[Rfam]
Small nucleolar RNA SNORA44: a 118-nucleotide sequence from Cavia porcellus. ACA44 is a member of the H/ACA class of snoRNA that guide the sites of modification of uridines to pseudouridines. The organism belongs to Cavia, within Eukaryota. The family has 27 seed sequences and 1,056 matches in Rfam 15.1. The match comes from Rfam's covariance-model search (92 bits). The family's RNA type in Rfam is H/ACA-box small nucleolar RNA.
RNA sequence: AAGCAUGUGUCCAAGGACUGUGGCUGGUGUGGUCUUGAGAUCUCCAACUGUGGGGGAGAGCAACCUGGAAAGACUUUCAGCCCAGGAUCUGUGGCUGCCACUCACCUUUUCUACAAAG
Dot-bracket structure: ...........(...(((((((.....)))))))..).............................((((((.......((.(((...))).....)).......)))))).......